[Rfam]
RNA sequence: AGCUUUGCACAGUGGCAGUGUCAUAGCCAAUGAGAUUUAUCUGAGGCACGAUUAUUGCUAAUUGAAAACUUUUCCCAAUACCCCACCAUGAUGACUUGAAAUAUAGUGAGCAUUGGCAAUUUUCUACAGAGAUUGUUUUUU
Dot-bracket structure: ...................(((.(.(((.....(.......)..)))).))).................................(((((.(.(((........))).).))).)).............(((......)))
Numbered sequence: 001a002g003c004u005u006u007g008c009a010c011a012g013u014g015g016c017a018g019u020g021u022c023a024u025a026g027c028c029a030a031u032g033a034g035a036u037u038u039a040u041c042u043g044a045g046g047c048a049c050g051a052u053u054a055u056u057g058c059u060a061a062u063u064g065a066a067a068a069c070u071u072u073u074c075c076c077a078a079u080a081c082c083c084c085a086c087c088a089u090g091a092u093g094a095c096u097u098g099a100a101a102u103a104u105a106g107u108g109a110g111c112a113u114u115g116g117c118a119a120u121u122u123u124c125u126a127c128a129g130a131g132a133u134u135g136u137u138u139u140u141u
Stems, first nucleotide, its partner, number of pairs: 020052003024048001026047003034042001086116002088113003092109001094107003130141003